[Rfam]
RNA sequence: AUUGGCACAAUGAGGAGUUAAUUUAGCUAAUGUAUCUCUGAGGUCUGAAGACCAAUGACUCUUCAUGUCCUUUUCAUUUUGAGGGCCCA
Dot-bracket structure: ...(((.(.(((((............................(((....)))....................))))).....).)))..
RNA: Small nucleolar RNA Z162